Rfam assigns this 114-nucleotide RNA sequence from Zophobihabitans entericus to the family "Alpha operon ribosome binding site". Rfam links the family to the GO term ribosome binding. Pairs were carried over by alignment from the consensus structure, which is taken from published work. A reference for the family is Schlax et al. (2001), "Translational repression of the Escherichia coli alpha operon mRNA: importance of an mRNA conformational switch and a ternary entrapment complex", J Biol Chem. Rfam describes the family as follows. The bacterial alpha operon ribosome binding site is surrounded by this complex pseudoknotted structure. Translation of the mRNA produces 4 ribosomal protein products, one of which (S4) acts as a translational repressor by binding to the nested pseudoknot region. The family's RNA type in Rfam is cis-regulatory element.

[Rfam]
RNA sequence: UCAAACAACCUCUAUAUGAGUAUCCUGAAAACGGGCUUUUCAGCAUGGGGGUUGUUUCAUUUUACUUAAAAGGAGUGCAUAGUGGCCCGUAUAGCAGGCAUUAACAUUCCUGAU
Numbered sequence: 001u002c003a004a005a006c007a008a009c010c011u012c013u014a015u016a017u018g019a020g021u022a023u024c025c026u027g028a029a030a031a032c033g034g035g036c037u038u039u040u041c042a043g044c045a046u047g048g049g050g051g052u053u054g055u056u057u058c059a060u061u062u063u064a065c066u067u068a069a070a071a072g073g074a075g076u077g078c079a080u081a082g083u084g085g086c087c088c089g090u091a092u093a094g095c096a097g098g099c100a101u102u103a104a105c106a107u108u109c110c111u112g113a114u
Stems, first nucleotide, its partner, number of pairs: 004056010024098003032089004040113003